[Rfam]
RNA sequence: GCUUUUCCCCCCAUUCCCGCGGGCGUAGAUUACAGAGAAGCCCGAGGGCUCUGGGGGAAAGAGC
Numbered sequence: 001g002c003u004u005u006u007c008c009c010c011c012c013a014u015u016c017c018c019g020c021g022g023g024c025g026u027a028g029a030u031u032a033c034a035g036a037g038a039a040g041c042c043c044g045a046g047g048g049c050u051c052u053g054g055g056g057g058a059a060a061g062a063g064c
Stems, first nucleotide, its partner, number of pairs: 001064002003061001008057003012053002018046001022042003025033002

The family of this 64-nucleotide RNA sequence from Pomatorhinus ruficollis is "MAT2A 3'UTR stem loop A". Lineage of the source: Eukaryota > Opisthokonta > Archosauria > Aves > Pomatorhinus. It scores 46 bits against the family's covariance model. By type it is a cis-regulatory element.